The record is a 124-nucleotide RNA from Myotis davidii, which matches "Small nucleolar RNA SNORA30/SNORA37 family" in Rfam.
NCBI's taxonomy places the organism under Eukaryota, Craniata, Teleostomi, Theria, Myotis.
The members of this family belong to the H/ACA class of snoRNAs that guide the sites of modification of uridines to pseudouridines. This family includes human ACA30 (SNORA30), ACA37 (SNORA37) and the mouse homolog MBI-26. Both ACA37 and ACA30 are predicted to guide the pseudouridylation of residue U4643 of 28S rRNA.
The family's RNA type in Rfam is H/ACA-box small nucleolar RNA.
On this family, see Huttenhofer et al., EMBO J 2001: "RNomics: an experimental approach that identifies 201 candidates for novel, small, non-messenger RNAs in mouse".
The base pairs follow the family's consensus structure, which was predicted with RNAfold.
It scores 101 bits against the family's covariance model.
[Rfam]
RNA sequence: AUAGCACUUUCACAGUCCUCCCCAGGAGUGGGCCAGGAUUUGGUAGCUGGUGCCGAAAGAAAACCCUGAGUGCAUCCUUUUCCUGGGACUGUGCCAGUGGUAGCUGUCACUCAGUGGCACAGAG
Dot-bracket structure: ...(((((....(((((((.((((....))))..)))).)))......)))))..........((((((.((.((..((.((((((.......)))).)).))..)))).)))).)).......